A member of the RNA family "Small nucleolar RNA ZL1" from Microcebus murinus, 192 nucleotides long. About the family: Host gene TRRAP. Predicted target U2@U47.
[Rfam]
RNA sequence: AGAGAAGCAAAGUGAUGAGCAAUACUGGCUGGAGCCCCAAAGAGGCACGUGUGUGUCUGUGUGUAUCUGUAUCUUUGUCUGUGCAUGCACAUGUAUGUCUGAUAGUAUGAAUGUGUGUGACUGGGUGUAGGGAACUAGCUAUGUGCCUUCCAUUGGGCCAUGACAGUCAAACUGAUAAGAUCUGAUUGCUUC
Numbered sequence: 001a002g003a004g005a006a007g008c009a010a011a012g013u014g015a016u017g018a019g020c021a022a023u024a025c026u027g028g029c030u031g032g033a034g035c036c037c038c039a040a041a042g043a044g045g046c047a048c049g050u051g052u053g054u055g056u057c058u059g060u061g062u063g064u065a066u067c068u069g070u071a072u073c074u075u076u077g078u079c080u081g082u083g084c085a086u087g088c089a090c091a092u093g094u095a096u097g098u099c100u101g102a103u104a105g106u107a108u109g110a111a112u113g114u115g116u117g118u119g120a121c122u123g124g125g126u127g128u129a130g131g132g133a134a135c136u137a138g139c140u141a142u143g144u145g146c147c148u149u150c151c152a153u154u155g156g157g158c159c160a161u162g163a164c165a166g167u168c169a170a171a172c173u174g175a176u177a178a179g180a181u182c183u184g185a186u187u188g189c190u191u192c
Base pairs, nucleotide, nucleotide: 004192005191006190007189008188009187010186014182015181016180026169027168028167029166030165031164038101039100041098043096045094046093047092049090050089051088052087053086054085055084056083057081059079063072064071065070105118106117107116108115121138122137123136124135126133140162141161142160143159145158146157147156148155

Record summary: Gene Ontology terms of the family: RNA processing and nucleolus. Taxonomically the source falls in Microcebus (Eukaryota, Craniata, Euteleostomi, Tetrapoda).